[Rfam]
Nucleotides: 081
Base pairs, nucleotide, nucleotide: 001076002075003074004073
Number, partner (000 for none) and nucleotide at each position: 001076u002075g003074c004073a005000a006000a007000u008000g009000a010000u011000g012000u013000u014000u015000u016000u017000c018000u019000c020000a021000c022000g023000a024000u025000g026000g027000u028000c029000u030000u031000c032000c033000a034000a035000g036000c037000u038000c039000a040000g041000g042000c043000u044000u045000u046000g047000a048000c049000g050000a051000u052000a053000g054000u055000g056000c057000c058000u059000a060000a061000u062000g063000g064000c065000g066000u067000u068000g069000c070000u071000g072000a073004u074003g075002c076001a077000a078000a079000g080000u081000g
The family of this 81-nucleotide RNA sequence from Neogobius melanostomus is "Small nucleolar RNA SNORD35". U35 is a C/D box snoRNA located in intron 6 of ribosomal protein L13A and intron 3 of ribosomal protein S11 in humans and at homologous positions in mouse and chicken ribosomal protein genes. U35 guides the methylation of 2'-O-ribose sites in 28S rRNA. The base pairs follow the family's consensus structure, which was predicted with PFOLD. The family is grouped with related families in Rfam's "SNORD35 clan". Taxonomically the source falls in Neogobius (Eukaryota, Metazoa, Bilateria, Gobiidae). By type it is a C/D-box small nucleolar RNA. The family has 8 seed sequences and 1,842 matches in Rfam 15.1.